[Rfam]
RNA sequence: GCGGCGGGACGACCCGCUGCACGAAACCGAUCCCGCCGGGACGACCCGG
Number, nucleotide and partner (000 for none) at each position: 001g020002c019003g018004g017005c016006g015007g014008g013009a000010c000011g000012a000013c008014c007015c006016g005017c004018u003019g002020c001021a000022c000023g000024a000025a000026a000027c000028c000029g000030a000031u000032c000033c000034c000035g000036c049037c048038g047039g046040g045041a000042c000043g000044a000045c040046c039047c038048g037049g036

Shown here is a 49-nucleotide RNA from Rhizobacter gummiphilus, a member of the family "Guanidine-II riboswitch aptamer (mini-ykkC)". On this family, see Weinberg et al., Nucleic Acids Res 2007: "Identification of 22 candidate structured RNAs in bacteria using the CMfinder comparative genomics pipeline". The source organism's lineage runs through Bacteria, Pseudomonadota, Betaproteobacteria, Burkholderiales and Rhizobacter. The match comes from Rfam's covariance-model search (44 bits). Rfam describes the family as follows. Simpler in structure and has fewer highly conserved nucleotide positions than the ykkC-yxkD leader. Despite this each of its two stem-loop structures directly bind free guanidine. Therefore, mini-ykkC RNA motif represents a distinct class of guanidine-sensing RNAs. Its crystal structure was also determined.